[Rfam]
RNA: Microsporidia small subunit ribosomal RNA, nucleotides 562 to 1127
Nucleotides: 566
Base pairs, nucleotide, nucleotide: 001529002528003527011401012400013399014398018394019393020392292388293387294386295384296383297382299380300379304376305375306374307373310354311353314350315349316348317347318346319345320344321343325336326335327334362369363368406447407446408445409444410443411442416440420436421435422434423433458525459524460523461521462520463519465504466503467502469500470499471498472497473496474495475494476493508515509514531558532557533556540551541550542549543548
Number, partner (000 for none) and nucleotide at each position: 001529c002528g003527g004000u005000u006000a007000a008000a009000a010000c011401g012400u013399u014398c015000g016000a017000a018394g019393u020392u021000u022000a023000u024000u025000c026000u027000u028000g029000u030000c031000c032000a033000a034000c035000a036000c037000g038000g039000g040000u041000g042000c043000u044000a045000c046000u047000c048000c049000u050000a051000a052000u053000g054000a055000u056000g057000g058000u059000a060000g061000u062000a063000g064000g065000u066000c067000a068000c069000u070000g071000g072000a073000u074000u075000g076000u077000u078000g079000c080000g081000a082000c083000u084000a085000u086000a087000a088000g089000a090000c091000u092000g093000g094000g095000u096000g097000c098000c099000u100000a101000u102000a103000u104000g105000g106000u107000g108000g109000c110000g111000c112000u113000u114000g115000a116000u117000g118000c119000c120000u121000u122000u123000c124000a125000u126000c127000g128000g129000g130000u131000g132000c133000a134000g135000c136000g137000u138000u139000u140000c141000c142000a143000c144000c145000a146000g147000c148000c149000c150000a151000g152000c153000u154000g155000c156000g157000a158000u159000u160000a161000c162000c163000u164000u165000g166000a167000a168000c169000a170000a171000a172000u173000u174000a175000g176000a177000g178000u179000g180000c181000u182000c183000u184000a185000a186000g187000c188000a189000g190000g191000c192000u193000a194000g195000c196000u197000a198000c199000a200000c201000g202000g203000c204000c205000g206000a207000g208000a209000a210000u211000a212000a213000u214000c215000u216000u217000g218000c219000a220000u221000g222000g223000a224000a225000u226000a227000a228000u229000g230000g231000a232000a233000u234000a235000u236000g237000a238000c239000c240000u241000c242000g243000g244000u245000c246000u247000u248000a249000c250000g251000u252000u253000u254000c255000g256000u257000u258000g259000g260000u261000u262000u263000g264000u265000a266000a267000u268000c269000a270000g271000a272000u273000c274000a275000a276000g277000a278000g279000g280000u281000a282000a283000u284000g285000a286000u287000u288000a289000a290000c291000a292388g293387a294386a295384g296383u297382a298000g299380u300379u301000g302000g303000g304376g305375g306374c307373a308000u309000u310354a311353g312000u313000a314350u315349u316348a317347c318346g319345g320344c321343g322000c323000g324000a325336g326335a327334g328000g329000u330000g331000a332000a333000a334327u335326u336325c337000g338000u339000a340000g341000a342000c343321c344320g345319u346318c347317g348316u349315a350314a351000g352000a353311c354310u355000g356000a357000c358000u359000a360000a361000a362369g363368c364000g365000a366000a367000a368363g369362c370000a371000u372000u373307u374306g375305c376304c377000a378000u379300g380299g381000a382297u383296g384295c385000u386294u387293u388292c389000a390000u391000u392020a393019a394018u395000c396000a397000a398014g399013a400012a401011c402000g403000a404000a405000a406447g407446u408445u409444a410443g411442a412000g413000g414000a415000u416440c417000g418000a419000a420436g421435g422434c423433g424000a425000u426000a427000a428000g429000a430000u431000a432000c433423c434422g435421c436420c437000c438000u439000a440416g441000u442411u443410c444409u445408a446407a447406c448000c449000g450000u451000a452000a453000a454000c455000u456000a457000u458525g459524c460523c461521a462520a463519u464000u465504a466503g467502c468000a469500a470499u471498u472497g473496g474495g475494a476493g477000a478000c479000g480000c481000u482000a483000c484000a485000u486000c487000a488000u489000g490000g491000u492000g493476c494475u495474c496473u497472c498471a499470g500469u501000a502467g503466c504465u505000u506000c507000c508515g509514g510000g511000a512000a513000a514509c515508c516000a517000a518000a519463a520462u521461u522000a523460g524459g525458u526000u527003c528002c529001g530000g531558g532557g533556g534000a535000a536000g537000u538000a539000u540551g541550g542549u543548u544000g545000c546000a547000a548543a549542g550541u551540u552000g553000a554000a555000a556533c557532u558531u559000g560000a561000a562000g563000g564000a565000a566000u